[Rfam]
RNA sequence: ACAAAUGGGAGCUAGGGUUCCGGUCCGCAUCGCCAGCGUGCAUGCGGAUGUCUGGUCCGAGAGCGCCCGGCCUCGCGCGGCAUGGCGGGGCUACACGGAGGGAUAAAAGCCCGGGAGAG
Numbered sequence: 001a002c003a004a005a006u007g008g009g010a011g012c013u014a015g016g017g018u019u020c021c022g023g024u025c026c027g028c029a030u031c032g033c034c035a036g037c038g039u040g041c042a043u044g045c046g047g048a049u050g051u052c053u054g055g056u057c058c059g060a061g062a063g064c065g066c067c068c069g070g071c072c073u074c075g076c077g078c079g080g081c082a083u084g085g086c087g088g089g090g091c092u093a094c095a096c097g098g099a100g101g102g103a104u105a106a107a108a109g110c111c112c113g114g115g116a117g118a119g
Stems, first nucleotide, its partner, number of pairs: 007068003011064002015058002020055002022052001023049008069092008094114001096117001100112003

The family of this 119-nucleotide RNA from Derxia gummosa is "Guanidine-I riboswitch aptamer". The organism belongs to Derxia gummosa, within Bacteria. Gene Ontology term of the family: regulation of gene expression.